Shown here is a 105-nucleotide RNA from Palleronia pontilimi, a member of the family "Guanidine-I riboswitch aptamer". Rfam describes the family as follows. This family represents a conserved RNA structure found upstream of the ykkC and yxkD genes in Bacillus subtilis and related genes in other bacteria. Lineage of the source: Bacteria > Pseudomonadati > Alphaproteobacteria > Roseobacteraceae > Palleronia. A search with the family's covariance model found it, with a score of 76 bits.
RNA sequence: AUGCAGGGUGUUUAGGGUUCCGCCGCAUUGCGGGUCAGGUCCAAGAAACACCACCCGGCCGGCAAAUUCCGGUUAGGCACACGGCGGGGCAAAAUCCCGGGAGAC
Numbered sequence: 001a002u003g004c005a006g007g008g009u010g011u012u013u014a015g016g017g018u019u020c021c022g023c024c025g026c027a028u029u030g031c032g033g034g035u036c037a038g039g040u041c042c043a044a045g046a047a048a049c050a051c052c053a054c055c056c057g058g059c060c061g062g063c064a065a066a067u068u069c070c071g072g073u074u075a076g077g078c079a080c081a082c083g084g085c086g087g088g089g090c091a092a093a094a095u096c097c098c099g100g101g102a103g104a105c
Stems, first nucleotide, its partner, number of pairs: 007052006015042002020039002022036001023033004054077002057074006080100001082103001086098003